This 53-nucleotide sequence from Leptothoe spongobia belongs to the Rfam family "Nitrogen stress-induced RNA 1".
By type it is a small RNA.
[Rfam]
RNA sequence: UGGUAGAUGCACCCUGAUAACGUCCUUAGCCCAUUGGGCUAAGGAUUUUUUUU
Numbered sequence: 001u002g003g004u005a006g007a008u009g010c011a012c013c014c015u016g017a018u019a020a021c022g023u024c025c026u027u028a029g030c031c032c033a034u035u036g037g038g039c040u041a042a043g044g045a046u047u048u049u050u051u052u053u
Stems, first nucleotide, its partner, number of pairs: 002013003023045010

The base pairs follow the family's consensus structure.